[Rfam]
RNA sequence: GCAGACUCACUCUGUGUAAGGCAGAUACCUCCAGCCUUAGACUUUUUCUGUCUGCUACAUUAACUUGAAGAUUGUUACAACCUGCCUUGCCUGUCACUUGGCAGGGUGACUGUACCUUCUCAGACAUUUAU
Numbered sequence: 001g002c003a004g005a006c007u008c009a010c011u012c013u014g015u016g017u018a019a020g021g022c023a024g025a026u027a028c029c030u031c032c033a034g035c036c037u038u039a040g041a042c043u044u045u046u047u048c049u050g051u052c053u054g055c056u057a058c059a060u061u062a063a064c065u066u067g068a069a070g071a072u073u074g075u076u077a078c079a080a081c082c083u084g085c086c087u088u089g090c091c092u093g094u095c096a097c098u099u100g101g102c103a104g105g106g107u108g109a110c111u112g113u114a115c116c117u118u119c120u121c122a123g124a125c126a127u128u129u130a131u
Stems, first nucleotide, its partner, number of pairs: 001055006014042002017039004022034001024032001069120003074116001076114004083108008